[Rfam]
The record is a 441-nucleotide part of an RNA from Pseudomonas aeruginosa, which matches "Bacterial large subunit ribosomal RNA" in Rfam. Pairs were carried over by alignment from the consensus structure, which is taken from published work. Taxonomically the source falls in Pseudomonas aeruginosa (Bacteria, Pseudomonadati, Pseudomonadota, Pseudomonas).
RNA sequence: CUCCUCGAAAGCUAUUUAGGUAGCGCCUCAUGUAUCACUCUGGGGGGUAGAGCACUGUUUCGGCUAGGGGGUCAUCCCGACUUACCAAACCGAUGCAAACUCCGAAUACCCAGAAGUGCCGAGCAUGGGAGACACACGGCGGGUGCUAACGUCCGUCGUGAAAAGGGAAACAACCCAGACCGCCAGCUAAGGUCCCAAAGUUGUGGUUAAGUGGUAAACGAUGUGGGAAGGCUUAGACAGCUAGGAGGUUGGCUUAGAAGCAGCCACCCUUUAAAGAAAGCGUAAUAGCUCACUAGUCGAGUCGGCCUGCGCGGAAGAUGUAACGGGGCUCAAACCACACACCGAAGCUGCGGGUGUCACGCAAGUGACGCGGUAGAGGAGCGUUCUGUAAGCCUGUGAAGGUGAGUUGAGAAGCUUGCUGGAGGUAUCAGAAGUGCGAAU
Number, nucleotide and partner (000 for none) at each position: 001c381002u380003c379004c378005u377006c376007g000008a000009a000010a000011g024012c023013u022014a021015u020016u000017u000018a000019g000020g015021u014022a013023g012024c011025g000026c131027c129028u128029c127030a126031u125032g124033u123034a000035u122036c118037a117038c116039u114040c113041u112042g111043g110044g109045g000046g000047g000048u000049a000050g103051a101052g100053c000054a000055c000056u097057g096058u095059u000060u093061c092062g091063g090064c000065u000066a000067g086068g085069g083070g082071g081072u080073c079074a000075u000076c000077c000078c000079g073080a072081c071082u070083u069084a000085c068086c067087a000088a000089a000090c063091c062092g061093a060094u000095g058096c057097a056098a000099a000100c052101u051102c000103c050104g000105a000106a000107u000108a000109c044110c043111c042112a041113g040114a039115a000116g038117u037118g036119c000120c000121g000122a035123g033124c032125a031126u030127g029128g028129g027130a000131g026132a000133c000134a000135c160136a159137c158138g157139g156140c155141g154142g153143g152144u151145g000146c000147u000148a000149a000150c000151g144152u143153c142154c141155g140156u139157c138158g137159u136160g135161a000162a000163a000164a000165g176166g175167g174168a000169a000170a000171c000172a000173a000174c167175c166176c165177a000178g000179a000180c353181c352182g351183c350184c000185a349186g348187c347188u000189a000190a000191g343192g342193u341194c000195c000196c000197a000198a000199a000200g340201u000202u339203g338204u337205g336206g335207u334208u000209a000210a000211g000212u000213g000214g000215u000216a000217a000218a000219c313220g312221a000222u000223g310224u309225g308226g307227g306228a000229a000230g303231g302232c301233u000234u000235a000236g000237a000238c000239a000240g297241c296242u295243a294244g293245g000246a270247g269248g268249u000250u000251g265252g264253c263254u000255u000256a000257g000258a000259a000260g000261c000262a000263g253264c252265c251266a000267c000268c248269c247270u246271u275272u000273a000274a000275a271276g291277a000278a000279a000280g289281c288282g000283u000284a000285a000286u000287a000288g281289c280290u000291c276292a000293c244294u243295a242296g241297u240298c000299g000300a000301g232302u231303c230304g000305g000306c227307c226308u225309g224310c223311g000312c220313g219314g000315a000316a000317g000318a000319u000320g000321u000322a000323a000324c000325g000326g000327g000328g000329c000330u000331c000332a000333a000334a207335c206336c205337a204338c203339a202340c200341a193342c192343c191344g000345a000346a000347g187348c186349u185350g183351c182352g181353g180354g371355u370356g369357u368358c367359a366360c365361g000362c000363a000364a000365g360366u359367g358368a357369c356370g355371c354372g000373g000374u000375a000376g006377a005378g004379g003380a002381g001382c436383g000384u433385u432386c431387u430388g429389u000390a000391a000392g426393c425394c424395u000396g000397u000398g000399a000400a000401g420402g419403u418404g417405a416406g415407u414408u413409g000410a000411g000412a000413a408414g407415c406416u405417u404418g403419c402420u401421g000422g000423a000424g394425g393426u392427a000428u000429c388430a387431g386432a385433a384434g000435u000436g382437c000438g000439a000440a000441u000